[Rfam]
A member of the RNA family "mir-205 microRNA precursor family" from Erinaceus europaeus, 71 nucleotides long. NCBI's taxonomy places the organism under Eukaryota, Craniata, Dipnotetrapodomorpha, Laurasiatheria, Erinaceus. A reference for the family is Lim et al. (2003), "Vertebrate microRNA genes", Science.
RNA sequence: UCCCUCUGUCCUUCAUUCCACCGGAGUCUGUCGGCACAACCAGAUUUCAGUGGCGUGAAGAGCAGGAGGCG
Dot-bracket structure: ..........((((((..(((.((((.(((..........))).)))).)))..))))))...........